[Rfam]
The family of this 77-nucleotide RNA sequence from Mustela putorius is "mir-1 microRNA precursor family".
NCBI's taxonomy places the organism under Eukaryota, Craniata, Gnathostomata, Mammalia, Mustela putorius.
The match comes from Rfam's covariance-model search (68 bits).
Rfam links the family to the GO terms RISC complex and miRNA-mediated post-transcriptional gene silencing.
RNA sequence: GCUUGGGGAACAUACUUCUUUAUAUGCCCAUACGGACCUGCGGAGCUGUGGAAUGUAAAGAAGUAUGUGUUUCAGGC
Number, nucleotide and partner (000 for none) at each position: 001g000002c000003u000004u000005g000006g000007g071008g070009a000010a068011c067012a066013u065014a064015c063016u062017u061018c060019u059020u058021u057022a056023u055024a054025u053026g000027c000028c051029c050030a049031u048032a047033c000034g000035g000036a000037c000038c000039u000040g000041c000042g000043g000044a000045g000046c000047u032048g031049u030050g029051g028052a000053a025054u024055g023056u022057a021058a020059a019060g018061a017062a016063g015064u014065a013066u012067g011068u010069g000070u008071u007072u000073c000074a000075g000076g000077c000
About the family: This family represents the microRNA (miRNA) mir-1 family. miRNAs are transcribed as ~70nt precursors (modelled here) and subsequently processed by the Dicer enzyme to give a ~22nt product. In this case the mature sequence comes from the 3' arm of the precursor.